[Rfam]
Rfam assigns this 52-nucleotide RNA from Vibrio thalassae to the family "L31-Gammaproteobacteria ribosomal protein leader". The base pairs follow the family's consensus structure, which is taken from published work. The literature on the family includes a 2020 paper in BMC Microbiol by Eckert and Weinberg, "Discovery of 20 novel ribosomal leader candidates in bacteria and archaea". By type it is a cis-regulatory leader. It scores 60 bits against the family's covariance model.
RNA sequence: CGUGUGGUGUCCGGCUCAGAAUCGGAUGGCGACACGGCCUAAACUUUGAGGU
Numbered sequence: 001c002g003u004g005u006g007g008u009g010u011c012c013g014g015c016u017c018a019g020a021a022u023c024g025g026a027u028g029g030c031g032a033c034a035c036g037g038c039c040u041a042a043a044c045u046u047u048g049a050g051g052u
Stems, first nucleotide, its partner, number of pairs: 001036005007030002011025004015019001